[Rfam]
RNA sequence: UGAGUAGCACGGAUGGUCGCGGCUGCAAAUGCCGAAAGGCUGCAGGUGAGGAAAGUCCGAGCUUCACAGGGCAGGAUUCCGGAUAACGUCCGGUGGAGGUGACUCCCAGGCCAGUGCAACAGAAAUAAACCGCCCGGAGCUUUUCCGGGUAAGGGUGGAAAGGCGAGGUAAGAGCUCACCGCCUGUCUGGUAACAGACAGGGCACAUGUAAACCCAAUCCGAAGCAAGACCGAACAGAAAGCGAUACGGCUGCCCGUCGUGCUUUCGGGUAGGUCGCUUGAUUCUGGUGGCGACAUCAGAACUAGAUAGAUGACCAUCGAUUACAGAACUCGGCUUAUAGUGCUACUCAUUUU
Numbered sequence: 001u002g003a004g005u006a007g008c009a010c011g012g013a014u015g016g017u018c019g020c021g022g023c024u025g026c027a028a029a030u031g032c033c034g035a036a037a038g039g040c041u042g043c044a045g046g047u048g049a050g051g052a053a054a055g056u057c058c059g060a061g062c063u064u065c066a067c068a069g070g071g072c073a074g075g076a077u078u079c080c081g082g083a084u085a086a087c088g089u090c091c092g093g094u095g096g097a098g099g100u101g102a103c104u105c106c107c108a109g110g111c112c113a114g115u116g117c118a119a120c121a122g123a124a125a126u127a128a129a130c131c132g133c134c135c136g137g138a139g140c141u142u143u144u145c146c147g148g149g150u151a152a153g154g155g156u157g158g159a160a161a162g163g164c165g166a167g168g169u170a171a172g173a174g175c176u177c178a179c180c181g182c183c184u185g186u187c188u189g190g191u192a193a194c195a196g197a198c199a200g201g202g203c204a205c206a207u208g209u210a211a212a213c214c215c216a217a218u219c220c221g222a223a224g225c226a227a228g229a230c231c232g233a234a235c236a237g238a239a240a241g242c243g244a245u246a247c248g249g250c251u252g253c254c255c256g257u258c259g260u261g262c263u264u265u266c267g268g269g270u271a272g273g274u275c276g277c278u279u280g281a282u283u284c285u286g287g288u289g290g291c292g293a294c295a296u297c298a299g300a301a302c303u304a305g306a307u308a309g310a311u312g313a314c315c316a317u318c319g320a321u322u323a324c325a326g327a328a329c330u331c332g333g334c335u336u337a338u339a340g341u342g343c344u345a346c347u348c349a350u351u352u353u
Base pairs, nucleotide, nucleotide: 001349002348003347004346005345006344007343008342009341010340011338012318013317014316015315016314017313018312020048021047023045024044025043026042027041053336054335055334057333058332059331060330061329062224063223064222065221069255070254071253072252074220075219076218077217078216079093080092081091082090083089094108095106096105097104098103109215110214114213115212116209117208118207130154131153132150133149134148135147136146137145138144139143162180163179165177166176167175181203182201183200184199185198186197187196188195189194228275229274230273231272237266238265239264240263241262242261246260247259248258249257250256282301283300284299285298286297287296288295289294

Rfam assigns this 353-nucleotide RNA from Acetivibrio ethanolgignens to the family "Bacterial RNase P class A". It is annotated as a ribozyme. The base pairs follow the family's consensus structure, which is taken from published work.